[Rfam]
Nucleotides: 119
Base pairs, nucleotide, nucleotide: 004112006110012104013103014102015101016100019055020054021053022052023051024050025049027048028047029046034042035041061086062085063084064083067080068079069078070077071076087096088095
Number, partner (000 for none) and nucleotide at each position: 001000a002000g003000g004112u005000u006110g007000u008000u009000u010000u011000g012104u013103c014102a015101c016100c017000g018000a019055g020054c021053u022052a023051a024050c025049a026000a027048u028047c029046c030000u031000a032000a033000a034042c035041u036000u037000c038000u039000c040000c041035g042034g043000c044000a045000g046029g047028g048027a049025u050024g051023u052022u053021a054020g055019c056000c057000g058000a059000u060000a061086g062085g063084g064083u065000u066000u067080a068079u069078c070077u071076g072000a073000a074000a075000a076071c077070g078069g079068a080067u081000u082000u083064g084063c085062c086061u087096u088095c089000c090000a091000a092000u093000g094000u095088g096087a097000a098000a099000a100016g101015g102014u103013g104012a105000a106000g107000a108000a109000u110006u111000g112004a113000g114000c115000u116000a117000c118000a119000g